This 188-nucleotide RNA from Microcaecilia unicolor belongs to the Rfam family "Plasmodium RNA of unknown function RUF6-5". It scores 70 bits against the family's covariance model. The literature on the family includes a 2007 paper in RNA by Chakrabarti et al., "Structural RNAs of known and unknown function identified in malaria parasites by comparative genomics and RNA analysis".
[Rfam]
Nucleotides: 188
Base pairs, nucleotide, nucleotide: 002162003161004160005159006158007157008156009155014150015149016148017147018146020144021143022142023141025139026138027137029135030134031133033131034130035129036128037127038126039125040124041123043121044120045119046118047117048116049115050114051113054110055109056108057107058106059105
Number, partner (000 for none) and nucleotide at each position: 001000c002162g003161c004160g005159g006158c007157a008156c009155c010000g011000g012000c013000a014150g015149g016148c017147a018146c019000u020144g021143u022142c023141u024000a025139g026138g027137c028000a029135g030134c031133c032000u033131u034130g035129a036128g037127g038126c039125a040124u041123u042000g043121g044120c045119u046118g047117c048116u049115g050114g051113c052000u053000c054110g055109c056108a057107g058106g059105c060000u061000c062000c063000u064000c065000c066000c067000g068000u069000c070000u071000c072000c073000u074000a075000u076000g077000u078000c079000a080000c081000g082000c083000a084000g085000u086000g087000a088000c089000g090000u091000a092000g093000g094000a095000g096000a097000u098000g099000g100000g101000a102000g103000a104000a105059g106058c107057c108056u109055g110054c111000g112000a113051g114050c115049c116048a117047g118046c119045a120044g121043c122000c123041a124040a125039u126038g127037c128036c129035u130034c131033a132000a133031g134030g135029c136000u137027g138026c139025c140000u141023a142022g143021a144020c145000a146018g147017u148016g149015c150014c151000u152000g153000c154000c155009g156008g157007u158006g159005c160004c161003g162002c163000g164000c165000u166000u167000u168000u169000u170000u171000u172000u173000u174000u175000u176000u177000u178000u179000u180000u181000u182000u183000u184000u185000u186000u187000u188000u